[Rfam]
Rfam assigns this 102-nucleotide RNA sequence from Xenopus tropicalis to the family "Vault RNA".
The family's RNA type in Rfam is non-coding RNA gene.
The base pairs follow the family's consensus structure, which is taken from published work.
Lineage of the source: Eukaryota > Eumetazoa > Chordata > Xenopodinae > Silurana.
RNA sequence: GGGCUGGCCAUAUAGCUCAGCGGUUCCUUCUUGAGCUCUCUGUUUACUACCAGACCAAUCCUCUCGGGGGUUUGAAACCCGCGGGCGCUAUCUAGCCCUUUU
Numbered sequence: 001g002g003g004c005u006g007g008c009c010a011u012a013u014a015g016c017u018c019a020g021c022g023g024u025u026c027c028u029u030c031u032u033g034a035g036c037u038c039u040c041u042g043u044u045u046a047c048u049a050c051c052a053g054a055c056c057a058a059u060c061c062u063c064u065c066g067g068g069g070g071u072u073u074g075a076a077a078c079c080c081g082c083g084g085g086c087g088c089u090a091u092c093u094a095g096c097c098c099u100u101u102u
Base pairs, nucleotide, nucleotide: 002097003096004095005094006093007092015086016085017084018083020082021081022080023079028076029075030074